[Rfam]
RNA sequence: UGCCUGGGCCGCGACUGGCGAAGGUGGACAACCACCGGGGAGCGACCGCAUUCUCGCGUGAGCGUCGACCGCCUGGGCGCCUGCG
Numbered sequence: 001u002g003c004c005u006g007g008g009c010c011g012c013g014a015c016u017g018g019c020g021a022a023g024g025u026g027g028a029c030a031a032c033c034a035c036c037g038g039g040g041a042g043c044g045a046c047c048g049c050a051u052u053c054u055c056g057c058g059u060g061a062g063c064g065u066c067g068a069c070c071g072c073c074u075g076g077g078c079g080c081c082u083g084c085g
Stems, first nucleotide, its partner, number of pairs: 007047002010044003015039002017073004024035004062080005